RNA: tRNA
Organism: Melampsora laricis-populina
RNA sequence: GCGUCUAUAGCUCAAUGGUCAGAGCACUCAUCUGGAUUAAGAGGGUUGUGGGUUCGAGUCCUACUAGACACA
Numbered sequence: 001g002c003g004u005c006u007a008u009a010g011c012u013c014a015a016u017g018g019u020c021a022g023a024g025c026a027c028u029c030a031u032c033u034g035g036a037u038u039a040a041g042a043g044g045g046u047u048g049u050g051g052g053u054u055c056g057a058g059u060c061c062u063a064c065u066a067g068a069c070a071c072a
Base pairs, nucleotide, nucleotide: 001071003069004068005067006066007065010025011024012023013022027043028042029041031039048064049063050062051061052060